The family of this 102-nucleotide RNA sequence from Zingiber officinale is "mir-172 microRNA precursor family". mir-172 has been experimentally verified in Arabidopsis thaliana. This family is thought to target mRNAs coding for APETALA2-like transcription factors. The mature sequence is excised from the 3' arm of the hairpin. The family has 11 seed sequences and 2,076 matches in Rfam 15.1. The match comes from Rfam's covariance-model search (80 bits). Gene Ontology terms of the family: RISC complex and miRNA-mediated post-transcriptional gene silencing.

RNA sequence: UUGUUUGCUGGUGCGGUAUCAUCAAGAUUCACAAGAUGCAGUGCGUUCUGAUAAUAUUGCUUGUAGUUUUGAGAAUCUUGAUGAUGCUGCAUUGGCAGUCAA
Numbered sequence: 001u002u003g004u005u006u007g008c009u010g011g012u013g014c015g016g017u018a019u020c021a022u023c024a025a026g027a028u029u030c031a032c033a034a035g036a037u038g039c040a041g042u043g044c045g046u047u048c049u050g051a052u053a054a055u056a057u058u059g060c061u062u063g064u065a066g067u068u069u070u071g072a073g074a075a076u077c078u079u080g081a082u083g084a085u086g087c088u089g090c091a092u093u094g095g096c097a098g099u100c101a102a
Stems, first nucleotide, its partner, number of pairs: 010093021032071006
Dot-bracket structure: .........(((((((((((((((((((((.((((((............................)))))).))))))))))))))))))))).........